RNA sequence: UCUGAGAGUGAUGAGUUGCACAGACUGUUGGGGCAGCAGUGCAGUGGCACAGCAGCUUCAAUCAGAAUAUCCCUGUUGACAGACCAAAGUGCACAGGGGCCAUCUGACUCGAG
Numbered sequence: 001u002c003u004g005a006g007a008g009u010g011a012u013g014a015g016u017u018g019c020a021c022a023g024a025c026u027g028u029u030g031g032g033g034c035a036g037c038a039g040u041g042c043a044g045u046g047g048c049a050c051a052g053c054a055g056c057u058u059c060a061a062u063c064a065g066a067a068u069a070u071c072c073c074u075g076u077u078g079a080c081a082g083a084c085c086a087a088a089g090u091g092c093a094c095a096g097g098g099g100c101c102a103u104c105u106g107a108c109u110c111g112a113g
Base pairs, nucleotide, nucleotide: 006110007109008108025065026064027063028061029060030059031058033056034055039050040049041048042047
RNA: Small nucleolar RNA SNORD67
Organism: Acipenser ruthenus